Shown here is a 131-nucleotide sequence from Jaculus jaculus, a member of the family "Small nucleolar RNA SNORA33".
[Rfam]
RNA sequence: AAGCCAGCCAAUUAAUUCUACUUCUCUCAGUGUGUUUUCGCAGAACUUCAGAAACAGCUGGCAAUAGAGAUGCCAGUUUAUCAGCCUUAAGGACAGCUGAGGUCAUUACGUCCCUCAAAAUGGCCACAGUA
Numbered sequence: 001a002a003g004c005c006a007g008c009c010a011a012u013u014a015a016u017u018c019u020a021c022u023u024c025u026c027u028c029a030g031u032g033u034g035u036u037u038u039c040g041c042a043g044a045a046c047u048u049c050a051g052a053a054a055c056a057g058c059u060g061g062c063a064a065u066a067g068a069g070a071u072g073c074c075a076g077u078u079u080a081u082c083a084g085c086c087u088u089a090a091g092g093a094c095a096g097c098u099g100a101g102g103u104c105a106u107u108a109c110g111u112c113c114c115u116c117a118a119a120a121u122g123g124c125c126a127c128a129g130u131a
Base pairs, nucleotide, nucleotide: 003062004061005060006059007058017044018043019042021040072124073123074122075121084111085110088108089107090106092104093103094102